[Rfam]
RNA sequence: UUGUGCUAGAUGGGGAGUCAGCGGUGCCCUGUAACCUGCAAUCCGCUAUAGCAGGAUCGAAUUCCUUGCCUCGGCCUUAACUUGUGGGGUCUGACCUAUGUAAGUGGUGUUGAGGGUUGGGUCCCACGCAAUAAGAGCUUGUGAACCUCGUCAGAUCUUGACCGAAGCAGCGAUAAGCAAGUACUCUUAUGUGCCGUGGAAAAAUCUGGCCUGAGCUAACUGCAUAGGUAACGCUCAUACGUUAUUGUCAAAGCAAGGUGCACAA
Number, nucleotide and partner (000 for none) at each position: 001u265002u264003g263004u262005g261006c260007u000008a000009g058010a057011u056012g030013g029014g028015g027016a000017g025018u024019c023020a000021g000022c000023g019024g018025u017026g000027c015028c014029c013030u012031g000032u000033a000034a000035c055036c054037u053038g052039c051040a000041a000042u000043c000044c000045g000046c000047u000048a000049u000050a000051g039052c038053a037054g036055g035056a011057u010058c009059g000060a000061a000062u000063u000064c258065c257066u256067u255068g254069c253070c000071u000072c000073g249074g248075c247076c000077u000078u000079a243080a242081c241082u000083u239084g238085u237086g236087g235088g234089g000090u000091c000092u230093g229094a000095c000096c227097u226098a225099u224100g223101u222102a000103a000104g220105u219106g217107g216108u215109g000110u000111u000112g000113a000114g212115g211116g210117u209118u208119g207120g206121g205122u204123c000124c199125c198126a197127c196128g195129c191130a190131a000132u189133a188134a187135g186136a185137g182138c181139u180140u179141g178142u177143g000144a000145a000146c000147c000148u173149c172150g171151u170152c000153a000154g000155a000156u165157c164158u000159u000160g000161a000162c000163c000164g157165a156166a000167g000168c000169a000170g151171c150172g149173a148174u000175a000176a000177g142178c141179a140180a139181g138182u137183a000184c000185u136186c135187u134188u133189a132190u130191g129192u000193g000194c000195c128196g127197u126198g125199g124200a000201a000202a000203a000204a122205u121206c120207u119208g118209g117210c116211c115212u114213g000214a000215g108216c107217u106218a000219a105220c104221u000222g101223c100224a099225u098226a097227g096228g000229u093230a092231a000232c000233g000234c088235u087236c086237a085238u084239a083240c000241g081242u080243u079244a000245u000246u000247g075248u074249c073250a000251a000252a000253g069254c068255a067256a066257g065258g064259u000260g006261c005262a004263c003264a002265a001
Record summary
Bacterial large signal recognition particle RNA: a 265-nucleotide RNA from Clostridium cavendishii. The source organism's lineage runs through Bacteria, Bacillati, Bacillota, Clostridium and Clostridium cavendishii. Gene Ontology terms of the family: SRP-dependent cotranslational protein targeting to membrane, signal sequence recognition and signal recognition particle, plasma membrane targeting. The match comes from Rfam's covariance-model search (210 bits). The base pairs follow the family's consensus structure, which is taken from published work. By type it is a non-coding RNA gene.